tRNA: a 94-nucleotide RNA from a Nitrososphaerota archaeon. Lineage of the source: Archaea > Thermoproteati > Nitrososphaerota. Rfam's curators write: Transfer RNA (tRNA) molecules are approximately 80 nucleotides in length. The family's RNA type in Rfam is transfer RNA.
RNA sequence: GCCGUGGUUGCCUAGCCUGGUAAGGCGCAGGAUUGCUAUUCUGCAAAAAUCCUGUCUCCGCAAGGAAUCGUGGGUUCAAAUCCCACUCACGGCG
Number, nucleotide and partner (000 for none) at each position: 001g093002c092003c091004g090005u089006g088007g087008u000009u000010g026011c025012c024013u023014a000015g000016c000017c000018u000019g000020g000021u000022a000023a013024g012025g011026c010027g000028c054029a053030g052031g051032a050033u049034u048035g000036c000037u000038a000039u000040u000041c000042u000043g000044c000045a000046a000047a000048a034049a033050u032051c031052c030053u029054g028055u000056c000057u000058c000059c000060g000061c000062a000063a000064g000065g000066a000067a000068u000069c000070g086071u085072g084073g083074g082075u000076u000077c000078a000079a000080a000081u000082c074083c073084c072085a071086c070087u007088c006089a005090c004091g003092g002093c001094g000